[Rfam]
RNA sequence: GGUAGUAGCAAAUAUUCAAAUGAGAACUUUGAAGGCCGAAGAGGAGAAAGGUUCCAUGUGAACGGCACUUGCACAUGGGUAAGCCGAUCCUAAGGGACGGGGGAAACCCGGCAGAUAGCGCGAUCACGCGCGUCACCCGAAAGGGAAUCGGGUUAAGAUUUCCCGAGCCGGGACGUGGCGGCAGACGGCGACGUUAGGAAGUCCGGAGACGCCGGCGAGGGCCUUGGGAAGAGUUAUCUUUUCUGCUUAACGGCCCGCCAACCCUGGAAUCGGUUCAGCCGGAGGUAGGGUCCAGCGGCCGGAAGAGCACCGCACAUCGCGCGGUGUCCGGUGUGCCCCCGGCGGCCCUUGAAAAUCCGGAGGACCGAAUACCGUCCACGCCCGGUCGUACUCAUAACCGCAUCAGGUCUCCAAGGUGAACAGCCUCUGGCCAA
Number, nucleotide and partner (000 for none) at each position: 001g000002g000003u000004a000005g000006u000007a000008g000009c000010a000011a000012a000013u000014a000015u033016u032017c031018a030019a029020a028021u000022g000023a000024g000025a000026a000027c000028u020029u019030u018031g017032a016033a015034g432035g431036c430037c429038g000039a000040a000041g000042a000043g412044g411045a410046g409047a000048a000049a392050g391051g000052u000053u000054c078055c077056a076057u075058g074059u073060g000061a000062a000063c071064g070065g000066c000067a000068c000069u000070u064071g063072c000073a059074c058075a057076u056077g055078g054079g000080u000081a000082a000083g000084c000085c388086g387087a386088u000089c144090c143091u000092a000093a000094g138095g137096g136097a000098c000099g000100g000101g000102g000103g000104a000105a000106a000107c000108c000109c000110g000111g000112c000113a000114g000115a000116u000117a000118g000119c000120g000121c000122g000123a000124u000125c000126a000127c000128g000129c000130g000131c000132g000133u000134c000135a000136c096137c095138c094139g000140a000141a000142a000143g090144g089145g000146a000147a000148u166149c165150g164151g163152g162153u000154u000155a000156a000157g000158a000159u000160u000161u000162c152163c151164c150165g149166a148167g000168c000169c384170g383171g382172g381173a000174c380175g379176u378177g377178g000179c000180g000181g000182c000183a000184g000185a000186c000187g000188g000189c000190g000191a000192c000193g000194u000195u000196a000197g000198g000199a000200a000201g000202u000203c000204c000205g358206g357207a356208g000209a000210c000211g346212c345213c344214g343215g000216c341217g340218a000219g338220g000221g000222c333223c000224u331225u330226g329227g247228g246229a000230a244231g243232a242233g000234u000235u000236a000237u000238c000239u000240u000241u000242u232243c231244u230245g000246c228247u227248u000249a000250a000251c301252g300253g299254c298255c000256c000257g000258c000259c000260a000261a291262c290263c289264c288265u287266g286267g000268a000269a000270u000271c281272g280273g279274u000275u000276c000277a000278g000279c273280c272281g271282g000283a000284g000285g000286u266287a265288g264289g263290g262291u261292c000293c000294a000295g000296c000297g000298g254299c253300c252301g251302g000303a000304a000305g000306a000307g000308c000309a000310c000311c000312g000313c321314a000315c000316a000317u000318c000319g000320c000321g313322c000323g000324g000325u000326g000327u000328c000329c226330g225331g224332u000333g222334u000335g000336c000337c000338c219339c000340c217341g216342g000343c214344g213345g212346c211347c000348c000349u000350u000351g000352a000353a000354a000355a000356u207357c206358c205359g000360g000361a000362g000363g000364a000365c000366c000367g000368a000369a000370u000371a000372c000373c000374g000375u000376c000377c177378a176379c175380g174381c172382c171383c170384g169385g000386u087387c086388g085389u000390a000391c050392u049393c000394a000395u000396a000397a000398c407399c406400g000401c000402a000403u000404c000405a000406g399407g398408u000409c046410u045411c044412c043413a000414a426415g425416g424417u000418g000419a000420a000421c000422a000423g000424c416425c415426u414427c000428u000429g037430g036431c035432c034433a000434a000
This 434-nucleotide part of an RNA from Zea mays belongs to the Rfam family "Archaeal large subunit ribosomal RNA".
The organism belongs to Zea, within Eukaryota.
A search with the family's covariance model found it, with a score of 1222 bits.